Background: Shown here is a 155-nucleotide RNA from Elstera litoralis, a member of the family "6S / SsrS RNA".
RNA sequence: CGGUAGCUGCCUGGUGCGUCAGGCCAAUAUUUCCCUGGGGCCAAUGACGAUCCUUCGGGAGCUGUCCCUGUCUAGAUCCUGGUCUAGGUAUAUGGCGCCCACCUGCUUGCGCAGGCCACAGAGGAUUCUGUGCCAACGGCCAAGGCGGCUACCAC
Dot-bracket structure: .((((((((((((((.(((............((((.(.((((..............(((.(((((....(((((((......)))))))..))))).))).............)))).).).)))..........))))))).))))))))))..
Numbered sequence: 001c002g003g004u005a006g007c008u009g010c011c012u013g014g015u016g017c018g019u020c021a022g023g024c025c026a027a028u029a030u031u032u033c034c035c036u037g038g039g040g041c042c043a044a045u046g047a048c049g050a051u052c053c054u055u056c057g058g059g060a061g062c063u064g065u066c067c068c069u070g071u072c073u074a075g076a077u078c079c080u081g082g083u084c085u086a087g088g089u090a091u092a093u094g095g096c097g098c099c100c101a102c103c104u105g106c107u108u109g110c111g112c113a114g115g116c117c118a119c120a121g122a123g124g125a126u127u128c129u130g131u132g133c134c135a136a137c138g139g140c141c142a143a144g145g146c147g148g149c150u151a152c153c154a155c
Stems, first nucleotide, its partner, number of pairs: 002153010012142004017138003032125003035121001037119001039117004057100003061096005070089007
NCBI's taxonomy places the organism under Bacteria, Pseudomonadati, Pseudomonadota, Rhodospirillales, Elstera.
A reference for the family is Wassarman and Storz (2000), "6S RNA regulates E. coli RNA polymerase activity", Cell.
By type it is a non-coding RNA gene.